[Rfam]
RNA sequence: GCGCCUUCUCCUCCGCCCGCUCGGCUGCCACGCGGCAGCUGAGCGAGGGCCUCGGGGUGGCGC
Numbered sequence: 001g002c003g004c005c006u007u008c009u010c011c012u013c014c015g016c017c018c019g020c021u022c023g024g025c026u027g028c029c030a031c032g033c034g035g036c037a038g039c040u041g042a043g044c045g046a047g048g049g050c051c052u053c054g055g056g057g058u059g060g061c062g063c
Stems, first nucleotide, its partner, number of pairs: 001061002005057004015050004020043006028035002
RNA: MIR2907 microRNA precursor family
Organism: Oryza meridionalis